Rfam assigns this 99-nucleotide sequence from Gracilibacillus halotolerans to the family "Purine riboswitch aptamer". Its Rfam clan is "Purine riboswitches". The base pairs follow the family's consensus structure, which is taken from published work. About the family: Riboswitches are metabolite binding domains within certain messenger RNAs that serve as precision sensors for their corresponding targets.
RNA sequence: CAAAGUAAUUCUAUAUCUUACUGUAUAACCUCAGAAUAUGGCUUGAGGGUCUCUACCAGGAACCAUAAAAUCCUGAUUACAGGAAAUGAAUCUUUCAUU
Numbered sequence: 001c002a003a004a005g006u007a008a009u010u011c012u013a014u015a016u017c018u019u020a021c022u023g024u025a026u027a028a029c030c031u032c033a034g035a036a037u038a039u040g041g042c043u044u045g046a047g048g049g050u051c052u053c054u055a056c057c058a059g060g061a062a063c064c065a066u067a068a069a070a071u072c073c074u075g076a077u078u079a080c081a082g083g084a085a086a087u088g089a090a091u092c093u094u095u096c097a098u099u
Stems, first nucleotide, its partner, number of pairs: 018085002021082005029048005034042001057075005